[Rfam]
RNA sequence: GGUCGCUUAGCUCAGCUGGUAGAGCGCCACGUUCACAUCGUGGAUGUCGCAGGUUCGAGUCCUGCAGCGACCA
Numbered sequence: 001g002g003u004c005g006c007u008u009a010g011c012u013c014a015g016c017u018g019g020u021a022g023a024g025c026g027c028c029a030c031g032u033u034c035a036c037a038u039c040g041u042g043g044a045u046g047u048c049g050c051a052g053g054u055u056c057g058a059g060u061c062c063u064g065c066a067g068c069g070a071c072c073a
Stems, first nucleotide, its partner, number of pairs: 001072007010025004027043005049065005
This 73-nucleotide RNA from a Gemmatimonadota bacterium belongs to the Rfam family "tRNA". Lineage of the source: Bacteria > Pseudomonadati > Gemmatimonadota. The family's consensus secondary structure is taken from published work. By type it is a transfer RNA. The match comes from Rfam's covariance-model search (71 bits).